[Rfam]
RNA sequence: AAUUCGGCUCAAAAGAAAAAAGAGAAGCAGAUCUAUUCUAUACCUGUUAAGUAUCAAUAUACAAUAGGG
Numbered sequence: 001a002a003u004u005c006g007g008c009u010c011a012a013a014a015g016a017a018a019a020a021a022g023a024g025a026a027g028c029a030g031a032u033c034u035a036u037u038c039u040a041u042a043c044c045u046g047u048u049a050a051g052u053a054u055c056a057a058u059a060u061a062c063a064a065u066a067g068g069g
Base pairs, nucleotide, nucleotide: 003022004021009016010015043068044067045066051060052059053058
RNA: Plastid-clpP 5UTR RNA
Organism: Gossypium barbadense